[Rfam]
RNA: Eukaryotic small subunit ribosomal RNA, nucleotides 633 to 1224
Organism: Schistosoma mansoni
RNA sequence: CAGUUAAAAAGCUCGUAGUUGAAUCUGGGUCGUGCGGUCGCAUGCCGUUGCUUGUUCACGGUUUUGGUUACGAUCAGGACCAGUGUUCAGCUCGGUGUAGUGGCUGUGCAGCCUUUCAGCCGUGUCUGUGUUAAACGGGUGCUGGUGGGUUGACGAGUUCGUCUUGUUGACCUGUCGGCAUGCUUCCGGAUGCCUUUAAACGGGUGUCGGGAGCGGACGGCAUCUUUACUUUGAACAAAUUUGAGUGCUCAAAGCAGGCCUAUGUGCCUGAAAAUUCUUGCAUGGAAUAAUGAAAUAGGACUUCGGUUCUAUUUUGUUGGUUUUCGGAUCCGAAGUAAUGGUUAAGAGGGACAGACGGGGGCAUUUGUAUGGCGGUGUUAGAGGUGAAAUUCUGGGAUCGCCGCCAGACAAACUACAGCGAAAGCAUUUGCCAAGAAUGUUUUCAUUGAUCAGGAGCGAAAGUCAGAGUUUCGAAGACGAUCAGAUACCGUCGUAGUUCUGACCAUAAACGAUGCCAACUGACGAUCCGCGUUGGUUCUAUAAUUGACAUCGCGGGCAGUCCCCGGGAAACCUUUAAGUCUUUGGGCUCCGG
Numbered sequence: 001c002a003g004u005u006a007a008a009a010a011g012c013u014c015g016u017a018g019u020u021g022a023a024u025c026u027g028g029g030u031c032g033u034g035c036g037g038u039c040g041c042a043u044g045c046c047g048u049u050g051c052u053u054g055u056u057c058a059c060g061g062u063u064u065u066g067g068u069u070a071c072g073a074u075c076a077g078g079a080c081c082a083g084u085g086u087u088c089a090g091c092u093c094g095g096u097g098u099a100g101u102g103g104c105u106g107u108g109c110a111g112c113c114u115u116u117c118a119g120c121c122g123u124g125u126c127u128g129u130g131u132u133a134a135a136c137g138g139g140u141g142c143u144g145g146u147g148g149g150u151u152g153a154c155g156a157g158u159u160c161g162u163c164u165u166g167u168u169g170a171c172c173u174g175u176c177g178g179c180a181u182g183c184u185u186c187c188g189g190a191u192g193c194c195u196u197u198a199a200a201c202g203g204g205u206g207u208c209g210g211g212a213g214c215g216g217a218c219g220g221c222a223u224c225u226u227u228a229c230u231u232u233g234a235a236c237a238a239a240u241u242u243g244a245g246u247g248c249u250c251a252a253a254g255c256a257g258g259c260c261u262a263u264g265u266g267c268c269u270g271a272a273a274a275u276u277c278u279u280g281c282a283u284g285g286a287a288u289a290a291u292g293a294a295a296u297a298g299g300a301c302u303u304c305g306g307u308u309c310u311a312u313u314u315u316g317u318u319g320g321u322u323u324u325c326g327g328a329u330c331c332g333a334a335g336u337a338a339u340g341g342u343u344a345a346g347a348g349g350g351a352c353a354g355a356c357g358g359g360g361g362c363a364u365u366u367g368u369a370u371g372g373c374g375g376u377g378u379u380a381g382a383g384g385u386g387a388a389a390u391u392c393u394g395g396g397a398u399c400g401c402c403g404c405c406a407g408a409c410a411a412a413c414u415a416c417a418g419c420g421a422a423a424g425c426a427u428u429u430g431c432c433a434a435g436a437a438u439g440u441u442u443u444c445a446u447u448g449a450u451c452a453g454g455a456g457c458g459a460a461a462g463u464c465a466g467a468g469u470u471u472c473g474a475a476g477a478c479g480a481u482c483a484g485a486u487a488c489c490g491u492c493g494u495a496g497u498u499c500u501g502a503c504c505a506u507a508a509a510c511g512a513u514g515c516c517a518a519c520u521g522a523c524g525a526u527c528c529g530c531g532u533u534g535g536u537u538c539u540a541u542a543a544u545u546g547a548c549a550u551c552g553c554g555g556g557c558a559g560u561c562c563c564c565g566g567g568a569a570a571c572c573u574u575u576a577a578g579u580c581u582u583u584g585g586g587c588u589c590c591g592g
Stems, first nucleotide, its partner, number of pairs: 001591001003589001009588001011457004018450003348444004352439002356435001360432004366410002370406008381392003418425002462503006472496001476492004514587003518579002521561003526556006533549001535548003565572002